This 79-nucleotide sequence from Eubacterium callanderi belongs to the Rfam family "ZMP/ZTP riboswitch aptamer (pfl RNA motif)". Rfam 15.1 lists 3,295 matches to the family in 2,545 species. Pairs were carried over by alignment from the consensus structure, which is taken from published work.
RNA sequence: UUAUAGUUAUACGACUGACGGAAGUGGAAUAAACCACAUGAAGUAUAAUAAUCAAGAGCCGACCGUCUGGGCAAAAGAG
Number, nucleotide and partner (000 for none) at each position: 001u000002u000003a052004u051005a000006g049007u048008u047009a046010u045011a044012c043013g000014a000015c040016u000017g067018a066019c065020g064021g063022a000023a000024g037025u036026g035027g034028a000029a000030u000031a000032a000033a000034c027035c026036a025037c024038a000039u000040g015041a000042a000043g012044u011045a010046u009047a008048a007049u006050a000051a004052u003053c000054a000055a000056g000057a000058g072059c071060c070061g000062a000063c021064c020065g019066u018067c017068u000069g000070g060071g059072c058073a000074a000075a000076a000077g000078a000079g000